[Rfam]
RNA sequence: UGCGGCAAACGUCGCGGAAAUAAAAGUAUGUCGAGUUUUCGACAGAAAACUCGGGAUAAAAAGCAUACACGGACGUAUGCUUUUUAUAGGGU
Numbered sequence: 001u002g003c004g005g006c007a008a009a010c011g012u013c014g015c016g017g018a019a020a021u022a023a024a025a026g027u028a029u030g031u032c033g034a035g036u037u038u039u040c041g042a043c044a045g046a047a048a049a050c051u052c053g054g055g056a057u058a059a060a061a062a063g064c065a066u067a068c069a070c071g072g073a074c075g076u077a078u079g080c081u082u083u084u085u086a087u088a089g090g091g092u
Stems, first nucleotide, its partner, number of pairs: 001016006032053009056087013
Dot-bracket structure: ((((((....))))))...............(((((((((....)))))))))..(((((((((((((......))))))))))))).....
The record is a 92-nucleotide RNA sequence from Treponema parvum, which matches "TD-2 RNA" in Rfam. The family's consensus secondary structure is taken from published work. It scores 51 bits against the family's covariance model. The family is grouped with related families in Rfam's "TD (Treponema denticola) motifs". The source organism's lineage runs through Bacteria, Spirochaetota, Treponematales, Treponemataceae and Treponema. For this family Rfam cites "Identification of 22 candidate structured RNAs in bacteria using the CMfinder comparative genomics pipeline" (Weinberg et al., Nucleic Acids Res, 2007).